RNA sequence: UUUUCUGUGGCUUCUCAAGCCUUUUAGUUUAUUUUUGGAGGGUUUUACAAUGUACAGUAUAAUGCCAAGUCAGGAUGCUCAGACAUUGUUAUUAUGUACUCUUUGAUUAAUCUCUGAUCUUGGUAAUGAUAUAUCA
Numbered sequence: 001u002u003u004u005c006u007g008u009g010g011c012u013u014c015u016c017a018a019g020c021c022u023u024u025u026a027g028u029u030u031a032u033u034u035u036u037g038g039a040g041g042g043u044u045u046u047a048c049a050a051u052g053u054a055c056a057g058u059a060u061a062a063u064g065c066c067a068a069g070u071c072a073g074g075a076u077g078c079u080c081a082g083a084c085a086u087u088g089u090u091a092u093u094a095u096g097u098a099c100u101c102u103u104u105g106a107u108u109a110a111u112c113u114c115u116g117a118u119c120u121u122g123g124u125a126a127u128g129a130u131a132u133a134u135c136a
Base pairs, nucleotide, nucleotide: 003059005057006056007055012054014052017045018044019043020042021041023039024038025037026036027035063125064124065123066122067121068120069119070117071116072115073114079106080105081104082103083102
The family of this 136-nucleotide RNA sequence from Pseudonaja textilis is "Small nucleolar RNA SNORA8". Pairs were carried over by alignment from the consensus structure, which was predicted with RNAfold. The family's RNA type in Rfam is H/ACA-box small nucleolar RNA. Rfam's curators write: ACA8 is a member of the H/ACA class of snoRNA that guide the sites of modification of uridines to pseudouridines. Its family is annotated with RNA processing and nucleolus in the Gene Ontology. The family has 5 seed sequences and 1,490 matches in Rfam 15.1.